[Rfam]
RNA sequence: ACUUACCGCUGUGCCUCCUCCCAUUGCGCGCGGUAAGUGUUCCCCUCUGGAGGUUUGCCCAAUGUGGCACCUUCAUAACUUAGCCGGACUUCCCAGUCCGGCUCUUUUU
Numbered sequence: 001a002c003u004u005a006c007c008g009c010u011g012u013g014c015c016u017c018c019u020c021c022c023a024u025u026g027c028g029c030g031c032g033g034u035a036a037g038u039g040u041u042c043c044c045c046u047c048u049g050g051a052g053g054u055u056u057g058c059c060c061a062a063u064g065u066g067g068c069a070c071c072u073u074c075a076u077a078a079c080u081u082a083g084c085c086g087g088a089c090u091u092c093c094c095a096g097u098c099c100g101g102c103u104c105u106u107u108u109u
Base pairs, nucleotide, nucleotide: 001038002037003036004035005034007032008031009030011029012028013027014026048075049074050073051072052071053070054069082103083102084101085100086099087098088097089096090095
RNA: Alphaproteobacterial ar15